[Rfam]
RNA sequence: CUGGUGACCCCGCGGUGCUGUCGGACCCCCGACCUGGCAGCACCGCGGGGUUUCCCA
Number, nucleotide and partner (000 for none) at each position: 001c000002u000003g055004g054005u000006g000007a051008c050009c049010c048011c047012g046013c045014g044015g043016u042017g041018c040019u039020g038021u037022c036023g000024g000025a000026c000027c000028c000029c000030c000031g000032a000033c000034c000035u000036g022037g021038c020039a019040g018041c017042a016043c015044c014045g013046c012047g011048g010049g009050g008051u007052u000053u000054c004055c003056c000057a000
RNA: F6 TB sRNA